[Rfam]
RNA sequence: CCCAUCAAAACAAAAUGAGAAUGAAAACAAUUUUAGUAAAUGCAUGUUGGUGGCGCUUCUUACAACCUCGAAAGUCGUAAGGAAGCAGUACUCAUGUAUAUAUACUAAAUAAAUUCAAAGGAUAUUAUCAGAGGCCUGUC
Numbered sequence: 001c002c003c004a005u006c007a008a009a010a011c012a013a014a015a016u017g018a019g020a021a022u023g024a025a026a027a028c029a030a031u032u033u034u035a036g037u038a039a040a041u042g043c044a045u046g047u048u049g050g051u052g053g054c055g056c057u058u059c060u061u062a063c064a065a066c067c068u069c070g071a072a073a074g075u076c077g078u079a080a081g082g083a084a085g086c087a088g089u090a091c092u093c094a095u096g097u098a099u100a101u102a103u104a105c106u107a108a109a110u111a112a113a114u115u116c117a118a119a120g121g122a123u124a125u126u127a128u129c130a131g132a133g134g135c136c137u138g139u140c
Stems, first nucleotide, its partner, number of pairs: 036105003040101003044097004049092004055086002058083003063077001065075002
The record is a 140-nucleotide sequence from Bacteroides luti, which matches "Bacteroidete tryptophan peptide leader RNA" in Rfam. The base pairs follow the family's consensus structure, which is taken from published work. Rfam classes the family as a cis-regulatory leader. A search with the family's covariance model found it, with a score of 84 bits.